[Rfam]
RNA: SAM/SAH riboswitch aptamer
RNA sequence: UGCCCGUCACAACGGCUUCCUGGCGUGACGGGGAAAAUCUUAAUGGAGCG
Numbered sequence: 001u002g003c004c005c006g007u008c009a010c011a012a013c014g015g016c017u018u019c020c021u022g023g024c025g026u027g028a029c030g031g032g033g034a035a036a037a038u039c040u041u042a043a044u045g046g047a048g049c050g
Stems, first nucleotide, its partner, number of pairs: 004031007013022002015049003019046002